Rfam assigns this 88-nucleotide RNA from Musca domestica to the family "mir-290 microRNA precursor family". Rfam links the family to the GO terms miRNA-mediated post-transcriptional gene silencing and RISC complex. For this family Rfam cites "Embryonic stem cell-specific MicroRNAs" (Houbaviy et al., Dev Cell, 2003). Rfam 15.1 lists 565 matches to the family in 128 species. The source organism's lineage runs through Eukaryota, Insecta, Neoptera, Muscomorpha and Musca.

[Rfam]
RNA sequence: GAAAUUCUUAAAAUGAGGGGGCACUCUAUUUUAUCGUGUUAUUUUCCGAAGGAAUUGAGAUAGAGUGCCCCCUCAUUUUAAGAAUUUC
Dot-bracket structure: ...(((((((((..(((((((((((.(((((((......................))))))).)))))))))))..)))))))))...